[Rfam]
RNA sequence: GCGCGAUGAGGACAGCAAACACAUACACACACUCCGAAUUAUUGUGAGGAGAUAAUUAAGAACGGAUAUCUGAGCGC
Numbered sequence: 001g002c003g004c005g006a007u008g009a010g011g012a013c014a015g016c017a018a019a020c021a022c023a024u025a026c027a028c029a030c031a032c033u034c035c036g037a038a039u040u041a042u043u044g045u046g047a048g049g050a051g052a053u054a055a056u057u058a059a060g061a062a063c064g065g066a067u068a069u070c071u072g073a074g075c076g077c
Stems, first nucleotide, its partner, number of pairs: 001077004
Rfam assigns this 77-nucleotide RNA to the family "Caenorhabditis snoRNA ceN89". Gene Ontology terms of the family: nucleolus and RNA processing. For this family Rfam cites "Systematic identification of non-coding RNA 2,2,7-trimethylguanosine cap structures in Caenorhabditis elegans" (Jia et al., BMC Mol Biol, 2007). Rfam classes the family as a C/D-box small nucleolar RNA.